Rfam assigns this 304-nucleotide RNA sequence from Rummeliibacillus sp. TYF005 to the family "BsrG". The source organism's lineage runs through Bacteria, Bacillota, Bacilli, Caryophanales and Rummeliibacillus. On this family, see Jahn and Brantl, Nucleic Acids Res 2013: "One antitoxin--two functions: SR4 controls toxin mRNA decay and translation". Pairs were carried over by alignment from the consensus structure, which was predicted with WAR. From the family's description: bsrE, bsrG and bsrH pair through intermolecular interactions with antisense sRNAs. They form type I toxin/antitoxin system that includes an mRNA encoding for a short, toxic peptide (bsrE, bsrG and bsrH) and an antitoxin that is comprised of an antisense RNA. bsrG encodes a 39-amino-acid toxin, and the 180 nucleotide antisense sRNA called SR4 acts as the antitoxin (they overlap by 123 nucleotides). SR4 interaction with the 3'UTR of bsrG RNA promotes bsrG degradation and inhibits its translation.

RNA sequence: UUGAUAGUUGGUACUCAAGGGUGGUUGGCUCACUCCGUCAAUGGUUUGCAGACAUCGUAUGUUACGACAUCGUCUACAUUACCCACAAAUUGUGGGACCGAGGGGGUGAUGCCUUGACAGUUUUUGAAUCAUUAAUGUUUGCGAUUGCAUUUGCAACGUUAGUCAUUACAAUUCUGUCAUUUAAUCAUAAAAAAUAACCCAUCCUUGAGUUGAGCGCUCUGCGGGUUGGGUUAUCUGAUCCUUUACAGCCAAUCCCCUUUAGGGAACCAACUAUCAUUUGACCGUUUGAUACUAAACAUCGGCG
Numbered sequence: 001u002u003g004a005u006a007g008u009u010g011g012u013a014c015u016c017a018a019g020g021g022u023g024g025u026u027g028g029c030u031c032a033c034u035c036c037g038u039c040a041a042u043g044g045u046u047u048g049c050a051g052a053c054a055u056c057g058u059a060u061g062u063u064a065c066g067a068c069a070u071c072g073u074c075u076a077c078a079u080u081a082c083c084c085a086c087a088a089a090u091u092g093u094g095g096g097a098c099c100g101a102g103g104g105g106g107u108g109a110u111g112c113c114u115u116g117a118c119a120g121u122u123u124u125u126g127a128a129u130c131a132u133u134a135a136u137g138u139u140u141g142c143g144a145u146u147g148c149a150u151u152u153g154c155a156a157c158g159u160u161a162g163u164c165a166u167u168a169c170a171a172u173u174c175u176g177u178c179a180u181u182u183a184a185u186c187a188u189a190a191a192a193a194a195u196a197a198c199c200c201a202u203c204c205u206u207g208a209g210u211u212g213a214g215c216g217c218u219c220u221g222c223g224g225g226u227u228g229g230g231u232u233a234u235c236u237g238a239u240c241c242u243u244u245a246c247a248g249c250c251a252a253u254c255c256c257c258u259u260u261a262g263g264g265a266a267c268c269a270a271c272u273a274u275c276a277u278u279u280g281a282c283c284g285u286u287u288g289a290u291a292c293u294a295a296a297c298a299u300c301g302g303c304g
Stems, first nucleotide, its partner, number of pairs: 001273001003271001005269001007267001008252005014209008023199004030109007116178005129144002152170002155167001219237001221235001253266001255264002283304004288300003